Mammalian CPEB3 ribozyme: a 73-nucleotide sequence from Alligator mississippiensis. The mammalian CPEB3 ribozyme is a self cleaving RNA located in the second intron of the CPEB3 gene which belongs to a family of genes regulating messenger RNA polyadenylation. Gene Ontology term of the family: RNA nuclease activity. Pairs were carried over by alignment from the consensus structure, which is taken from published work.
RNA sequence: ACUCAUGCUAAGGAGCACACAGCAGAAGUGUUCACAUCACAAACCCUGUCAGGUAAUACUUGCAAAUUCUGCU
Numbered sequence: 001a002c003u004c005a006u007g008c009u010a011a012g013g014a015g016c017a018c019a020c021a022g023c024a025g026a027a028g029u030g031u032u033c034a035c036a037u038c039a040c041a042a043a044c045c046c047u048g049u050c051a052g053g054u055a056a057u058a059c060u061u062g063c064a065a066a067u068u069c070u071g072c073u
Stems, first nucleotide, its partner, number of pairs: 013046001015044001021073007028040003050062005